[Rfam]
Rfam assigns this 124-nucleotide RNA from Holothuria leucospilota to the family "Phenylalanine leader peptide". Rfam links the family to the GO term cellular amino acid metabolic process. The organism belongs to Holothuria, within Eukaryota. The base pairs follow the family's consensus structure, which was predicted with CMfinder. The family has 71 seed sequences and 379 matches in Rfam 15.1.

RNA sequence: UAAAAAAAAAAAAAAUUUUUCCCCUUUUUUUUUUUUCCCCCCUUAAAGGGGGGGUUUUUUUGGGGGGUGGAAAAAAAAAGGGGGGGUUAAAACUUUUAAACCCCCCCAAAGGGGUUUUUUUUUU
Numbered sequence: 001u002a003a004a005a006a007a008a009a010a011a012a013a014a015a016u017u018u019u020u021c022c023c024c025u026u027u028u029u030u031u032u033u034u035u036u037c038c039c040c041c042c043u044u045a046a047a048g049g050g051g052g053g054g055u056u057u058u059u060u061u062g063g064g065g066g067g068u069g070g071a072a073a074a075a076a077a078a079a080g081g082g083g084g085g086g087u088u089a090a091a092a093c094u095u096u097u098a099a100a101c102c103c104c105c106c107c108a109a110a111g112g113g114g115u116u117u118u119u120u121u122u123u124u
Stems, first nucleotide, its partner, number of pairs: 016091003021086002024084011036072001039054004055065004098117007